[Rfam]
RNA sequence: AUACGUUCACCUCUUACGAGGCGCAUAACAACAAGCUUGGAACGGGGCUUGUU
Dot-bracket structure: ...[[[[[.((((....))))........(((((((...]]]]]..)))))))